RNA: Xanthine riboswitch aptamer (NMT1 RNA)
RNA sequence: AACUCGAGUAGAAGCGGUCAGUGCCAAAAGUUGGCAUGGGACAUUGCUCUGGCG
Numbered sequence: 001a002a003c004u005c006g007a008g009u010a011g012a013a014g015c016g017g018u019c020a021g022u023g024c025c026a027a028a029a030g031u032u033g034g035c036a037u038g039g040g041a042c043a044u045u046g047c048u049c050u051g052g053c054g
Stems, first nucleotide, its partner, number of pairs: 006049005015039001018041002021037007